[Rfam]
Nucleotides: 136
Stems, first nucleotide, its partner, number of pairs: 004066003009060001011058002024052006078129005086120001088118003092114007
Number, partner (000 for none) and nucleotide at each position: 001000g002000c003000u004066g005065g006064g007000g008000c009060c010000a011058g012057u013000u014000g015000g016000g017000a018000c019000c020000a021000g022000u023000c024052g025051u026050g027049g028048g029047c030000a031000a032000a033000a034000u035000a036000a037000a038000u039000a040000u041000g042000u043000u044000u045000u046000u047029g048028u049027c050026c051025g052024c053000u054000g055000u056000u057012g058011c059000a060009g061000u062000c063000u064006u065005c066004c067000u068000a069000g070000a071000g072000c073000a074000a075000a076000g077000u078129g079128g080127a081126g082125g083000u084000c085000u086120c087000u088118g089117u090116c091000u092114g093113c094112u095111u096110u097109a098108g099000g100000a101000c102000a103000g104000c105000u106000g107000a108098c109097u110096a111095a112094a113093g114092c115000a116090g117089a118088u119000c120086g121000u122000u123000c124000c125082c126081u127080u128079c129078c130000a131000u132000a133000c134000a135000u136000a